[Rfam]
RNA sequence: CAAGCGGAAGCCGAAAAGCUACUAGAGUAGGCA
Numbered sequence: 001c002a003a004g005c006g007g008a009a010g011c012c013g014a015a016a017a018g019c020u021a022c023u024a025g026a027g028u029a030g031g032c033a
Base pairs, nucleotide, nucleotide: 003020004019005018010032011031012030
This 33-nucleotide sequence from Nonlabens ponticola belongs to the Rfam family "DUF805b RNA". The family's consensus secondary structure is taken from published work. NCBI's taxonomy places the organism under Bacteria, Bacteroidota, Flavobacteriales, Flavobacteriaceae, Nonlabens.